A member of the RNA family "SAM riboswitch aptamer (S box leader)" from Arcticibacter tournemirensis, 114 nucleotides long. It scores 64 bits against the family's covariance model. Rfam's curators write: The SAM riboswitch is found upstream of a number of genes which code for proteins involved in methionine or cysteine biosynthesis in Gram-positive bacteria.

RNA sequence: UGCUUAUUGAGAAAGACGGAGGGAGUAGACCCUGCGAAGUCUUAGCAACCUGUGCUUACAAGGUGCUAAAUUCUAUUCUUUACCAACACUAUUCAGGUAAAGAGAAGAUAAGUU
Numbered sequence: 001u002g003c004u005u006a007u008u009g010a011g012a013a014a015g016a017c018g019g020a021g022g023g024a025g026u027a028g029a030c031c032c033u034g035c036g037a038a039g040u041c042u043u044a045g046c047a048a049c050c051u052g053u054g055c056u057u058a059c060a061a062g063g064u065g066c067u068a069a070a071u072u073c074u075a076u077u078c079u080u081u082a083c084c085a086a087c088a089c090u091a092u093u094c095a096g097g098u099a100a101a102g103a104g105a106a107g108a109u110a111a112g113u114u
Stems, first nucleotide, its partner, number of pairs: 002113007013043005021032003028074001029072001044067004049063002051060003071106001077103008